[Rfam]
RNA sequence: GUCUCAUCCGCCAUUCGUCUUGACUUGAGCGGUUAUAUGCUUCAGUCUUGUCGAAUGGUGGGUGAGCU
Numbered sequence: 001g002u003c004u005c006a007u008c009c010g011c012c013a014u015u016c017g018u019c020u021u022g023a024c025u026u027g028a029g030c031g032g033u034u035a036u037a038u039g040c041u042u043c044a045g046u047c048u049u050g051u052c053g054a055a056u057g058g059u060g061g062g063u064g065a066g067c068u
Base pairs, nucleotide, nucleotide: 003066004065005064006063007062008061009060010059011058012057013056014055015054016053017052019050022047023046024045025044027042029040030039